[Rfam]
RNA sequence: UAUUGCUCAUAUGACUGACGGAAGUGGAGUUUCGGCGGCAUUUUGUCGCCGAGAAAACCACAGGGAGUAUGAGUCUUUGGAAGCCGACCGUCUGGGCAUUGUUU
Numbered sequence: 001u002a003u004u005g006c007u008c009a010u011a012u013g014a015c016u017g018a019c020g021g022a023a024g025u026g027g028a029g030u031u032u033c034g035g036c037g038g039c040a041u042u043u044u045g046u047c048g049c050c051g052a053g054a055a056a057a058c059c060a061c062a063g064g065g066a067g068u069a070u071g072a073g074u075c076u077u078u079g080g081a082a083g084c085c086g087a088c089c090g091u092c093u094g095g096g097c098a099u100u101g102u103u104u
Base pairs, nucleotide, nucleotide: 005074006073007072008071009070010069011068012067015064016063017092018091019090020089021088024061025060026059027058081099083097084096085095